The record is a 130-nucleotide RNA from Macleaya cordata, which matches "Small nucleolar RNA snoR74" in Rfam. A reference for the family is Marker et al. (2002), "Experimental RNomics: identification of 140 candidates for small non-messenger RNAs in the plant Arabidopsis thaliana", Curr Biol.
[Rfam]
Nucleotides: 130
Stems, first nucleotide, its partner, number of pairs: 005048003011037002014034004062123008076112007
Number, partner (000 for none) and nucleotide at each position: 001000a002000a003000a004000a005048a006047a007046g008000c009000a010000g011037g012036g013000a014034u015033c016032u017031g018000u019000u020000g021000c022000c023000u024000u025000u026000g027000u028000g029000a030000a031017c032016a033015g034014g035000u036012c037011u038000c039000u040000c041000g042000u043000a044000a045000a046007c047006u048005u049000c050000a051000g052000g053000g054000a055000a056000a057000u058000c059000a060000c061000u062123u063122c064121a065120u066119u067118g068117u069116u070000u071000u072000u073000g074000g075000g076112u077111g078110a079109a080108c081107c082106u083000c084000u085000g086000u087000a088000g089000a090000u091000a092000u093000u094000a095000c096000c097000a098000u099000u100000a101000g102000c103000a104000g105000a106082a107081g108080g109079u110078u111077c112076a113000g114000u115000a116069a117068a118067u119066g120065a121064u122063g123062a124000u125000a126000c127000a128000u129000c130000a
The organism belongs to Macleaya, within Eukaryota.